This 99-nucleotide sequence from Candidatus Tokpelaia sp. JSC189 belongs to the Rfam family "Bacterial small signal recognition particle RNA". It scores 59 bits against the family's covariance model. The literature on the family includes a 2016 paper in Proc Natl Acad Sci U S A by Righetti et al., "Temperature-responsive in vitro RNA structurome of Yersinia pseudotuberculosis". The signal recognition particle (SRP) is a universally conserved ribonucleoprotein involved in the co-translational targeting of proteins to membranes.
[Rfam]
RNA sequence: GGAGGUUGGUGGUGGACGAGCUACUCGCUAACCGGGUCAGAUCCGGAAGGAAGCAGCCCUAACGGGUUUUUAGCACGGGUCACCGUGCCAGCCUCCUGC
Numbered sequence: 001g002g003a004g005g006u007u008g009g010u011g012g013u014g015g016a017c018g019a020g021c022u023a024c025u026c027g028c029u030a031a032c033c034g035g036g037u038c039a040g041a042u043c044c045g046g047a048a049g050g051a052a053g054c055a056g057c058c059c060u061a062a063c064g065g066g067u068u069u070u071u072a073g074c075a076c077g078g079g080u081c082a083c084c085g086u087g088c089c090a091g092c093c094u095c096c097u098g099c
Base pairs, nucleotide, nucleotide: 004093005092006091007090008089009086010085011084012083013082014081017077018076020074021073022072023067024066025065026064027063029061034059035058036057037056042051043050044049